[Rfam]
RNA: L13-Bacteroidia ribosomal protein leader
RNA sequence: GGGGGAGUACUUAGGCCCCCCAGGAGCGACGUGUUAAUAGCUGUGCUUUUGGCCAGGCAUAGUGGUUAGUGAAUC
Numbered sequence: 001g002g003g004g005g006a007g008u009a010c011u012u013a014g015g016c017c018c019c020c021c022a023g024g025a026g027c028g029a030c031g032u033g034u035u036a037a038u039a040g041c042u043g044u045g046c047u048u049u050u051g052g053c054c055a056g057g058c059a060u061a062g063u064g065g066u067u068a069g070u071g072a073a074u075c
Stems, first nucleotide, its partner, number of pairs: 001021005034069005040063009